The family of this 73-nucleotide RNA sequence from Ziziphus jujuba is "MIR473 microRNA precursor family".
RNA sequence: UUUGUUCACUCUCCCUCAAGGCUUCUAGCGUUGCGUACGCAAAAGCUGGAAGCCUUUUGGGGAGAGUUGACAG
Number, nucleotide and partner (000 for none) at each position: 001u000002u000003u000004g000005u000006u069007c000008a067009c066010u065011c064012u063013c062014c061015c060016u000017c000018a056019a055020g054021g053022c052023u051024u050025c049026u000027a000028g000029c000030g000031u000032u000033g000034c000035g000036u000037a000038c000039g000040c000041a000042a000043a000044a000045g000046c000047u000048g000049g025050a024051a023052g022053c021054c020055u019056u018057u000058u000059g000060g015061g014062g013063a012064g011065a010066g009067u008068u000069g006070a000071c000072a000073g000
Rfam links the family to the GO terms RISC complex and miRNA-mediated post-transcriptional gene silencing. It scores 53 bits against the family's covariance model. For this family Rfam cites "Novel and mechanical stress-responsive MicroRNAs in Populus trichocarpa that are absent from Arabidopsis" (Lu et al., Plant Cell, 2005).